Rfam assigns this 177-nucleotide sequence from Clostridium cadaveris to the family "Lysine riboswitch aptamer".
Riboswitches are metabolite binding domains within certain messenger RNAs that serve as precision sensors for their corresponding targets.
Pairs were carried over by alignment from the consensus structure, which is taken from published work.
Gene Ontology term of the family: lysine biosynthetic process.
The match comes from Rfam's covariance-model search (119 bits).
The source organism's lineage runs through Bacteria, Bacillati, Eubacteriales, Clostridiaceae and Clostridium.
[Rfam]
RNA sequence: CCUUGAGGUAGAGGAGCGAUAAUCAAGAGUAGUGUUGCUGAGCAAAGCAGCUUUGAAGUUACAUGAAAGGGAUUAUUGCCGAAGCUUACAAUAAAUGCUUUAAUAUUGUACAGCUGGGAUUACGCAAAAUAUGUGUAAUACUGUCACAAAGUCAGUUUGUGGAGAGCUAUCAUCGUA
Numbered sequence: 001c002c003u004u005g006a007g008g009u010a011g012a013g014g015a016g017c018g019a020u021a022a023u024c025a026a027g028a029g030u031a032g033u034g035u036u037g038c039u040g041a042g043c044a045a046a047g048c049a050g051c052u053u054u055g056a057a058g059u060u061a062c063a064u065g066a067a068a069g070g071g072a073u074u075a076u077u078g079c080c081g082a083a084g085c086u087u088a089c090a091a092u093a094a095a096u097g098c099u100u101u102a103a104u105a106u107u108g109u110a111c112a113g114c115u116g117g118g119a120u121u122a123c124g125c126a127a128a129a130u131a132u133g134u135g136u137a138a139u140a141c142u143g144u145c146a147c148a149a150a151g152u153c154a155g156u157u158u159g160u161g162g163a164g165a166g167c168u169a170u171c172a173u174c175g176u177a
Base pairs, nucleotide, nucleotide: 007171008170009169010168011167016079017078018077019076020075021074022073023072024071032064033063034062035061037059038058039057083115084114085113086112087110088109089108090107091106092105093104116142117141119139120138121137122136123135124134125133126132144162145161146160147159148158149157150156